[Rfam]
RNA sequence: GGUCACCUUCGGGGGGCCAUACAUAUAGGCGGGCCGGCCUGGCCGCACCCGCCGCUAGCAAACGGAAGACAGAAA
Numbered sequence: 001g002g003u004c005a006c007c008u009u010c011g012g013g014g015g016g017c018c019a020u021a022c023a024u025a026u027a028g029g030c031g032g033g034c035c036g037g038c039c040u041g042g043c044c045g046c047a048c049c050c051g052c053c054g055c056u057a058g059c060a061a062a063c064g065g066a067a068g069a070c071a072g073a074a075a
Stems, first nucleotide, its partner, number of pairs: 001018004006014003028053006